RNA sequence: UCAUAUAUGGACUGUAGAAACACCUGAAGCGAGUGAGGACCAUCCGAUUCUAGCCAUGGAAACAGAUAAGAGCUCAUGUCUGGGUUCCUGUUUCUGUGAUGCUUUUGAGGUUUGCGCAUGAGAUAGCAUCGGUUAGGCUUCAAACUCUUGAGGUGUUUCUACAGGCUACAUAUGA
Numbered sequence: 001u002c003a004u005a006u007a008u009g010g011a012c013u014g015u016a017g018a019a020a021c022a023c024c025u026g027a028a029g030c031g032a033g034u035g036a037g038g039a040c041c042a043u044c045c046g047a048u049u050c051u052a053g054c055c056a057u058g059g060a061a062a063c064a065g066a067u068a069a070g071a072g073c074u075c076a077u078g079u080c081u082g083g084g085u086u087c088c089u090g091u092u093u094c095u096g097u098g099a100u101g102c103u104u105u106u107g108a109g110g111u112u113u114g115c116g117c118a119u120g121a122g123a124u125a126g127c128a129u130c131g132g133u134u135a136g137g138c139u140u141c142a143a144a145c146u147c148u149u150g151a152g153g154u155g156u157u158u159c160u161a162c163a164g165g166c167u168a169c170a171u172a173u174g175a
Stems, first nucleotide, its partner, number of pairs: 001175006008168003012164014027149003031145001034142005040136001042134001044132005051125002055120003067096002070093004075084001
RNA: MIR537 microRNA precursor family
Organism: Physcomitrium patens